[Rfam]
Nucleotides: 083
Base pairs, nucleotide, nucleotide: 010075011074012073013072015070016069017068018067019066020065021064022063024061026059027058028057029056030055031054034051035050036049037048
Number, partner (000 for none) and nucleotide at each position: 001000a002000g003000g004000c005000c006000u007000g008000c009000a010075g011074a012073g013072a014000a015070a016069g017068a018067g019066g020065c021064a022063g023000g024061g025000u026059c027058u028057g029056a030055u031054c032000u033000g034051c035050a036049g037048c038000u039000u040000c041000a042000g043000u044000g045000g046000c047000a048037g049036c050035u051034g052000a053000u054031g055030a056029u057028c058027a059026g060000c061024c062000a063022u064021u065020g066019c067018c068017u069016c070015u071000c072013u073012c074011u075010c076000u077000c078000u079000c080000u081000c082000u083000c
Shown here is an 83-nucleotide RNA sequence from Myotis davidii, a member of the family "mir-574 microRNA precursor family". A reference for the family is Lui et al. (2007), "Patterns of known and novel small RNAs in human cervical cancer", Cancer Res. Its Rfam clan is "mir-574 microRNA precursor clan". The family has 6 seed sequences and 4,084 matches in Rfam 15.1. Pairs were carried over by alignment from the consensus structure, which was predicted with RNAalifold.